[Rfam]
RNA sequence: UUUGCUUCUCGAAUAACCGAUUGCUGAUAGACCCUGUUCGCAGGCGGUUCAGACAGGGGCAUAAAACAAAUCUGAAUCCCUUGUGGGAAGGAUUAUUUCCGUUAAUCCUUCCUUGUACGGGUUUCAUGUAUAUAUUUGCAUAUAU
Numbered sequence: 001u002u003u004g005c006u007u008c009u010c011g012a013a014u015a016a017c018c019g020a021u022u023g024c025u026g027a028u029a030g031a032c033c034c035u036g037u038u039c040g041c042a043g044g045c046g047g048u049u050c051a052g053a054c055a056g057g058g059g060c061a062u063a064a065a066a067c068a069a070a071u072c073u074g075a076a077u078c079c080c081u082u083g084u085g086g087g088a089a090g091g092a093u094u095a096u097u098u099c100c101g102u103u104a105a106u107c108c109u110u111c112c113u114u115g116u117a118c119g120g121g122u123u124u125c126a127u128g129u130a131u132a133u134a135u136u137u138g139c140a141u142a143u144a145u
Base pairs, nucleotide, nucleotide: 003061004060005059006058007057009056015049016048017047018046019045021043022042024040026038073138074137075136076135077134078121079120080119083114085112087111090108091107092106093105094104095103

Small nucleolar RNA snoR138: a 145-nucleotide RNA sequence from Digitaria exilis. A search with the family's covariance model found it, with a score of 47 bits. Rfam classes the family as an H/ACA-box small nucleolar RNA. Rfam links the family to the GO terms nucleolus and RNA processing. The literature on the family includes a 2009 paper in Nucleic Acids Res by Chen and Wu, "Mining small RNA sequencing data: a new approach to identify small nucleolar RNAs in Arabidopsis".